The record is a 150-nucleotide RNA from Kyrpidia spormannii, which matches "c-di-AMP riboswitch aptamer (ydaO/yuaA leader)" in Rfam.

RNA sequence: AAAAACGACCGGCCGAGUCGCCACAGUUCCGGAAUUCCGGGCGUGGCGUACGGGGGAACCAAAUGUGUGGGGUGAAAUGACCCGGUGGUCAUCGGGCGACCUUUCGACCGAACCCGGCAGCUAACCCCGGAGGCCGCCGAAAGGAGAGAG
Numbered sequence: 001a002a003a004a005a006c007g008a009c010c011g012g013c014c015g016a017g018u019c020g021c022c023a024c025a026g027u028u029c030c031g032g033a034a035u036u037c038c039g040g041g042c043g044u045g046g047c048g049u050a051c052g053g054g055g056g057a058a059c060c061a062a063a064u065g066u067g068u069g070g071g072g073u074g075a076a077a078u079g080a081c082c083c084g085g086u087g088g089u090c091a092u093c094g095g096g097c098g099a100c101c102u103u104u105c106g107a108c109c110g111a112a113c114c115c116g117g118c119a120g121c122u123a124a125c126c127c128c129g130g131a132g133g134c135c136g137c138c139g140a141a142a143g144g145a146g147a148g149a150g
Stems, first nucleotide, its partner, number of pairs: 011135004019048006051129005060069002070115003078091004094109002097106001